[Rfam]
A member of the RNA family "mir-19 microRNA precursor family" from Lemur catta, 78 nucleotides long. Clan: mir-19 clan. Rfam's curators put it in the seed alignment. The base pairs follow the family's consensus structure, which was predicted with RNAalifold. On this family, see Mourelatos et al., Genes Dev 2002: "miRNPs: a novel class of ribonucleoproteins containing numerous microRNAs".
RNA sequence: ACUCACGAUUAGUUUUGCAGGUUUGCAUUUCAGCGUAUACAUAAGGCUGUGCAAAUCCAUGCAAAACUGAUCGUGAUA
Numbered sequence: 001a002c003u004c005a006c007g008a009u010u011a012g013u014u015u016u017g018c019a020g021g022u023u024u025g026c027a028u029u030u031c032a033g034c035g036u037a038u039a040c041a042u043a044a045g046g047c048u049g050u051g052c053a054a055a056u057c058c059a060u061g062c063a064a065a066a067c068u069g070a071u072c073g074u075g076a077u078a
Stems, first nucleotide, its partner, number of pairs: 003076017020058002022055007032048003